[Rfam]
RNA: MIR8024 microRNA precursor family
RNA sequence: UUGGGAGUUUUGAUGACUUCAACUUAUAGACUUGGAGGAUUUGAAGACUUCAAUUUGUCGACUUGAAGGAUUUGGAGACUUCAACU
Numbered sequence: 001u002u003g004g005g006a007g008u009u010u011u012g013a014u015g016a017c018u019u020c021a022a023c024u025u026a027u028a029g030a031c032u033u034g035g036a037g038g039a040u041u042u043g044a045a046g047a048c049u050u051c052a053a054u055u056u057g058u059c060g061a062c063u064u065g066a067a068g069g070a071u072u073u074g075g076a077g078a079c080u081u082c083a084a085c086u
Base pairs, nucleotide, nucleotide: 001084002083003082004081005080009076010075011074012073013072017068018067019066020065021064026058027057028056032053033052034051035050036049037048